[Rfam]
RNA sequence: AGGGUCUGGUAUGGAUUUUGGGGGGACCCCACACCAAAAAAAAAAUGGUUUGUGGUCCCCCAAAAUCCAUACCAGACCCUUA
Numbered sequence: 001a002g003g004g005u006c007u008g009g010u011a012u013g014g015a016u017u018u019u020g021g022g023g024g025g026a027c028c029c030c031a032c033a034c035c036a037a038a039a040a041a042a043a044a045a046u047g048g049u050u051u052g053u054g055g056u057c058c059c060c061c062a063a064a065a066u067c068c069a070u071a072c073c074a075g076a077c078c079c080u081u082a
Stems, first nucleotide, its partner, number of pairs: 001081003005076005013068008022060005029055005